[Rfam]
RNA sequence: UAUGGAUCAAAGGUGUUAAAUUUUAUCCUGCGUUAUCUAUCUGAUAGUCCUUUCUUUAAAUGGAAAUGAAGAUAAUACCAAUCUCAUACUGAGAUCCAGU
Numbered sequence: 001u002a003u004g005g006a007u008c009a010a011a012g013g014u015g016u017u018a019a020a021u022u023u024u025a026u027c028c029u030g031c032g033u034u035a036u037c038u039a040u041c042u043g044a045u046a047g048u049c050c051u052u053u054c055u056u057u058a059a060a061u062g063g064a065a066a067u068g069a070a071g072a073u074a075a076u077a078c079c080a081a082u083c084u085c086a087u088a089c090u091g092a093g094a095u096c097c098a099g100u
Stems, first nucleotide, its partner, number of pairs: 003098005
Dot-bracket structure: ..(((((......................................................................................)))))..
Shown here is a 100-nucleotide RNA sequence from Gossypium stocksii, a member of the family "Small nucleolar RNA snoR27".
The literature on the family includes a 2001 paper in RNA by Brown et al., "Multiple snoRNA gene clusters from Arabidopsis".
By type it is a C/D-box small nucleolar RNA.
The match comes from Rfam's covariance-model search (59 bits).